[Rfam]
RNA sequence: GAGGUGUGCUCAGAGCAGGGGGUCUGAAGAAAUGACUCCUCUGUUUAAAACACACCCAACAGGAAUCUGGGUUCAUUGUGACAAGGGGCACAAAACUUGUGGCCUUCCUGUGAACAAACACCCUACACAU
Number, nucleotide and partner (000 for none) at each position: 001g000002a000003g056004g055005u054006g053007u052008g051009c000010u000011c000012a000013g046014a045015g044016c043017a042018g041019g040020g039021g038022g036023u035024c034025u000026g000027a000028a000029g000030a000031a000032a000033u000034g024035a023036c022037u000038c021039c020040u019041c018042u017043g016044u015045u014046u013047a000048a000049a000050a000051c008052a007053c006054a005055c004056c003057c000058a000059a000060c000061a000062g000063g000064a000065a000066u000067c000068u000069g000070g123071g122072u000073u120074c000075a000076u000077u116078g115079u114080g000081a000082c112083a111084a000085g105086g104087g103088g000089c101090a100091c099092a098093a097094a000095a000096c000097u093098u092099g091100u090101g089102g000103c087104c086105u085106u000107c000108c000109u000110g000111u083112g082113a000114a079115c078116a077117a000118a000119c000120a073121c000122c071123c070124u000125a000126c000127a000128c000129a000130u000
RNA: Small nucleolar RNA SNORA11
Organism: Diceros bicornis